Rfam assigns this 73-nucleotide sequence from Mycoplasma capricolum to the family "tRNA". Taxonomically the source falls in Mycoplasma (Bacteria, Mollicutes, Mycoplasmatales, Mycoplasmataceae). Its family is annotated with triplet codon-amino acid adaptor activity in the Gene Ontology. Pairs were carried over by alignment from the consensus structure, which is taken from published work. The family's RNA type in Rfam is transfer RNA.
RNA sequence: GACUCGUUAGCUCAGCCGGUAGAGCAACUGGCUUUUAACCAGUGGGUCCGGGGUUCGAAUCCCCGACGAGUCA
Number, nucleotide and partner (000 for none) at each position: 001g072002a071003c070004u069005c068006g067007u066008u000009a000010g025011c024012u023013c022014a000015g000016c000017c000018g000019g000020u000021a000022g013023a012024g011025c010026a000027a043028c042029u041030g040031g039032c000033u000034u000035u000036u000037a000038a000039c031040c030041a029042g028043u027044g000045g000046g000047u000048c000049c065050g064051g063052g062053g061054u000055u000056c000057g000058a000059a000060u000061c053062c052063c051064c050065g049066a007067c006068g005069a004070g003071u002072c001073a000